[Rfam]
RNA sequence: ACACGUGAAGGGAGGUGAUCCGAAGCUUGUGUAGUUAUCGGACUCGUGAGGUGGCUGUCCGCUAGCCGCUGUCCUUGACAGUCGACCGUCCGUCCUCCGGGGCGGGCACAGAAGAUCGUCGAGACCGUGUGGCAGCGGUGCGGCGAAUCCAAGACAGCCACCCGACCCCCGGGGUGCCGGCCCAGUCCAGCCGGCCCGCGCGUCAGCGCGGAAGCCCCGGGGGUCGACCCCU
Numbered sequence: 001a002c003a004c005g006u007g008a009a010g011g012g013a014g015g016u017g018a019u020c021c022g023a024a025g026c027u028u029g030u031g032u033a034g035u036u037a038u039c040g041g042a043c044u045c046g047u048g049a050g051g052u053g054g055c056u057g058u059c060c061g062c063u064a065g066c067c068g069c070u071g072u073c074c075u076u077g078a079c080a081g082u083c084g085a086c087c088g089u090c091c092g093u094c095c096u097c098c099g100g101g102g103c104g105g106g107c108a109c110a111g112a113a114g115a116u117c118g119u120c121g122a123g124a125c126c127g128u129g130u131g132g133c134a135g136c137g138g139u140g141c142g143g144c145g146a147a148u149c150c151a152a153g154a155c156a157g158c159c160a161c162c163c164g165a166c167c168c169c170c171g172g173g174g175u176g177c178c179g180g181c182c183c184a185g186u187c188c189a190g191c192c193g194g195c196c197c198g199c200g201c202g203u204c205a206g207c208g209c210g211g212a213a214g215c216c217c218c219g220g221g222g223g224u225c226g227a228c229c230c231c232u
Base pairs, nucleotide, nucleotide: 014059015058016057017056019054060145061144062143063142065141066140068136069135070134071133073131163226164225165224166223167222168221169220170219171218172217173216174215175214176195177194178193179192180191181190

The family of this 232-nucleotide RNA from Micromonospora inyonensis is "Actinobacteria sRNA Ms_IGR-5". The pairing is the family consensus, mapped onto this sequence. It scores 89 bits against the family's covariance model.